RNA sequence: GGGCAGUGAUGAGAACCUAGGAAAGUCAUGCACCACUCUGAUUCAUUGUGAUUGAUAAACUUUCUCUAACCUGUAUAUUAUUUCUGAGCCC
Numbered sequence: 001g002g003g004c005a006g007u008g009a010u011g012a013g014a015a016c017c018u019a020g021g022a023a024a025g026u027c028a029u030g031c032a033c034c035a036c037u038c039u040g041a042u043u044c045a046u047u048g049u050g051a052u053u054g055a056u057a058a059a060c061u062u063u064c065u066c067u068a069a070c071c072u073g074u075a076u077a078u079u080a081u082u083u084c085u086g087a088g089c090c091c
Stems, first nucleotide, its partner, number of pairs: 001091004

Small nucleolar RNA Z221/R21b: a 91-nucleotide RNA sequence from Artemisia annua.
It is annotated as a C/D-box small nucleolar RNA.
The family's consensus secondary structure was predicted with WAR.
Lineage of the source: Eukaryota > Magnoliopsida > campanulids > Anthemideae > Artemisia.